[Rfam]
SAM riboswitch aptamer (S box leader): a 112-nucleotide RNA from Clostridium novyi. The sequence is in the family's curated seed alignment. On this family, see Grundy and Henkin, Mol Microbiol 1998: "The S box regulon: a new global transcription termination control system for methionine and cysteine biosynthesis genes in gram-positive bacteria". Rfam describes the family as follows. The SAM riboswitch is found upstream of a number of genes which code for proteins involved in methionine or cysteine biosynthesis in Gram-positive bacteria.
RNA sequence: AUCUUAUCAAGAGUGGUUGAGGGACUGGCCCUAUGAAACCCGGCAACAACUAAUUUUCAUUUAAAUUAGUAAUGUGCUAAUUCCAGCAGGAAAUUUUCCUGAAAGAUAAGAG
Numbered sequence: 001a002u003c004u005u006a007u008c009a010a011g012a013g014u015g016g017u018u019g020a021g022g023g024a025c026u027g028g029c030c031c032u033a034u035g036a037a038a039c040c041c042g043g044c045a046a047c048a049a050c051u052a053a054u055u056u057u058c059a060u061u062u063a064a065a066u067u068a069g070u071a072a073u074g075u076g077c078u079a080a081u082u083c084c085a086g087c088a089g090g091a092a093a094u095u096u097u098c099c100u101g102a103a104a105g106a107u108a109a110g111a112g
Stems, first nucleotide, its partner, number of pairs: 002111007013041001015040003021031003025086004042078004047074002049070007082104001087101005